[Rfam]
RNA sequence: ACUCGCCCAGCUCUGCAUGGUUACACUUGUCCUCACUCGUGUGACUUUCAUAAUGUGGAGAGAGAGAAAAGUUCUCCUCAGGCUGUCAGCUUGGCUUUACAGUGGCCCCUUUCCUUGAGGGGUCCAACAGGG
Numbered sequence: 001a002c003u004c005g006c007c008c009a010g011c012u013c014u015g016c017a018u019g020g021u022u023a024c025a026c027u028u029g030u031c032c033u034c035a036c037u038c039g040u041g042u043g044a045c046u047u048u049c050a051u052a053a054u055g056u057g058g059a060g061a062g063a064g065a066g067a068a069a070a071g072u073u074c075u076c077c078u079c080a081g082g083c084u085g086u087c088a089g090c091u092u093g094g095c096u097u098u099a100c101a102g103u104g105g106c107c108c109c110u111u112u113c114c115u116u117g118a119g120g121g122g123u124c125c126a127a128c129a130g131g132g
Stems, first nucleotide, its partner, number of pairs: 002066003006062001008060001011058002014055002019046008074122005080116003088110002093107004
RNA: Small nucleolar RNA SNORA64/SNORA10 family
Organism: Otolemur garnettii